[Rfam]
RNA sequence: GGUUGUUUGAGGGGAAGUUGUUCUCAGUACGAGAGGAACAGGGCAACGUAGCCUCUGGCGUACCGGUUGUCUGAUAAGGCAUGCGCCGGGCAGCUAAGCUGUUGAGGAUAAGAGCUGAAAGCAUCUAAGCUCGAAGCCUCUCCUAAGAAAAAACAACCAUCUAUAAUAUUUUCUCUUUAGGGGGUUAAUAUAUAGACGAGAGCUGGGGAAGAAGACCCCGUUGAUGGUAUGGGAGUGUAAGUUGGAAGGUUUCGACCGACCAAUUCAGCUCGCCAUUUCCAAUAGCUCAAGGC
Numbered sequence: 001g002g003u004u005g006u007u008u009g010a011g012g013g014g015a016a017g018u019u020g021u022u023c024u025c026a027g028u029a030c031g032a033g034a035g036g037a038a039c040a041g042g043g044c045a046a047c048g049u050a051g052c053c054u055c056u057g058g059c060g061u062a063c064c065g066g067u068u069g070u071c072u073g074a075u076a077a078g079g080c081a082u083g084c085g086c087c088g089g090g091c092a093g094c095u096a097a098g099c100u101g102u103u104g105a106g107g108a109u110a111a112g113a114g115c116u117g118a119a120a121g122c123a124u125c126u127a128a129g130c131u132c133g134a135a136g137c138c139u140c141u142c143c144u145a146a147g148a149a150a151a152a153a154c155a156a157c158c159a160u161c162u163a164u165a166a167u168a169u170u171u172u173c174u175c176u177u178u179a180g181g182g183g184g185u186u187a188a189u190a191u192a193u194a195g196a197c198g199a200g201a202g203c204u205g206g207g208g209a210a211g212a213a214g215a216c217c218c219c220g221u222u223g224a225u226g227g228u229a230u231g232g233g234a235g236u237g238u239a240a241g242u243u244g245g246a247a248g249g250u251u252u253c254g255a256c257c258g259a260c261c262a263a264u265u266c267a268g269c270u271c272g273c274c275a276u277u278u279c280c281a282a283u284a285g286c287u288c289a290a291g292g293c
Stems, first nucleotide, its partner, number of pairs: 001158008011144004017047008048102005056096003063089005068081005105139003112132005200288004204220005225281003229276004233271003241264005248257001

A member of the RNA family "Archaeal large subunit ribosomal RNA" from uncultured marine crenarchaeote AD1000-23-H12, 293 nucleotides of a longer RNA. The base pairs follow the family's consensus structure, which is taken from published work.